[Rfam]
RNA sequence: AGACCGGGAGACUUUCUAACGGGAAGAAAGUCAAGAAUAGGUUUUCGGAGAUCCUUUCUCGUAUGGGAAUACAUCUGAUACCCGACAGAUUGUAUU
Numbered sequence: 001a002g003a004c005c006g007g008g009a010g011a012c013u014u015u016c017u018a019a020c021g022g023g024a025a026g027a028a029a030g031u032c033a034a035g036a037a038u039a040g041g042u043u044u045u046c047g048g049a050g051a052u053c054c055u056u057u058c059u060c061g062u063a064u065g066g067g068a069a070u071a072c073a074u075c076u077g078a079u080a081c082c083c084g085a086c087a088g089a090u091u092g093u094a095u096u
Stems, first nucleotide, its partner, number of pairs: 001044005010032008068096005073090005
Rfam assigns this 96-nucleotide RNA sequence to the family "Rhodo-rpoB RNA". The sequence is in the family's curated seed alignment. It is annotated as a cis-regulatory element.